[Rfam]
RNA sequence: UGAUCGAGUGCCGCACUGUGGGACGUGUGGCGAGAAUGGAUCGUAUAAGUCUGUCGUCUCGACAGGGCGCUAAGCGGAGGCCCGACCGCUUAUGUG
Numbered sequence: 001u002g003a004u005c006g007a008g009u010g011c012c013g014c015a016c017u018g019u020g021g022g023a024c025g026u027g028u029g030g031c032g033a034g035a036a037u038g039g040a041u042c043g044u045a046u047a048a049g050u051c052u053g054u055c056g057u058c059u060c061g062a063c064a065g066g067g068c069g070c071u072a073a074g075c076g077g078a079g080g081c082c083c084g085a086c087c088g089c090u091u092a093u094g095u096g
Base pairs, nucleotide, nucleotide: 001043002042003041004040005039010031011030012029013028014027015026016025068096069095070094072091073090074089075088076087077086
Dot-bracket structure: (((((....(((((((........))))))).......)))))........................(((.((((((........))))))..)))

This 96-nucleotide sequence belongs to the Rfam family "Rhodo-rpoB RNA".
The base pairs follow the family's consensus structure, which is taken from published work.